[Rfam]
RNA sequence: CCCCUUUCGUUCCGCCCUCGGAAUACCUAUUAUUAAGGCGUCGGGAAACCGGCUAUGGGGAUAAACCUUUCGCGGAAUAAGCAUUACGGACCCGGGGGCGGUACCCGGCGCCUCCACCAGUUUACAAGAUGCGCCCGUUUACGGAUAUGUGGGCUGGCGCAUCCCUCUGGGGGCGAAACAGGAUCGACGUGUGUAGUAAAGGCGUAAGUUUCUCCCGGCAUGGUACCACCGUUAUCGGGCCAAGCUAGUAGUUGCGAACGACAACUCCAAGCAGGUCGCCCUCGCCGCUUAAUUGCGGUCUGGGUAACCACCCUUAAGCCCUUAUCUUGCUAAGGUAAGGCGCGGUUCGGAGGGCACCGGGCAACAGAAGCCCUCCACU
Numbered sequence: 001c002c003c004c005u006u007u008c009g010u011u012c013c014g015c016c017c018u019c020g021g022a023a024u025a026c027c028u029a030u031u032a033u034u035a036a037g038g039c040g041u042c043g044g045g046a047a048a049c050c051g052g053c054u055a056u057g058g059g060g061a062u063a064a065a066c067c068u069u070u071c072g073c074g075g076a077a078u079a080a081g082c083a084u085u086a087c088g089g090a091c092c093c094g095g096g097g098g099c100g101g102u103a104c105c106c107g108g109c110g111c112c113u114c115c116a117c118c119a120g121u122u123u124a125c126a127a128g129a130u131g132c133g134c135c136c137g138u139u140u141a142c143g144g145a146u147a148u149g150u151g152g153g154c155u156g157g158c159g160c161a162u163c164c165c166u167c168u169g170g171g172g173g174c175g176a177a178a179c180a181g182g183a184u185c186g187a188c189g190u191g192u193g194u195a196g197u198a199a200a201g202g203c204g205u206a207a208g209u210u211u212c213u214c215c216c217g218g219c220a221u222g223g224u225a226c227c228a229c230c231g232u233u234a235u236c237g238g239g240c241c242a243a244g245c246u247a248g249u250a251g252u253u254g255c256g257a258a259c260g261a262c263a264a265c266u267c268c269a270a271g272c273a274g275g276u277c278g279c280c281c282u283c284g285c286c287g288c289u290u291a292a293u294u295g296c297g298g299u300c301u302g303g304g305u306a307a308c309c310a311c312c313c314u315u316a317a318g319c320c321c322u323u324a325u326c327u328u329g330c331u332a333a334g335g336u337a338a339g340g341c342g343c344g345g346u347u348c349g350g351a352g353g354g355c356a357c358c359g360g361g362c363a364a365c366a367g368a369a370g371c372c373c374u375c376c377a378c379u
Stems, first nucleotide, its partner, number of pairs: 040053005057215005067208003071204003082193003086190003092108005109175007216231003221242003226238002343359004349376006
Rfam assigns this 379-nucleotide RNA sequence from Oceanibaculum indicum to the family "Alphaproteobacteria transfer-messenger RNA".
The match comes from Rfam's covariance-model search (276 bits).
By type it is a non-coding RNA gene.
On this family, see Williams and Bartel, RNA 1996: "Phylogenetic analysis of tmRNA secondary structure".
The organism belongs to Oceanibaculum indicum, within Bacteria.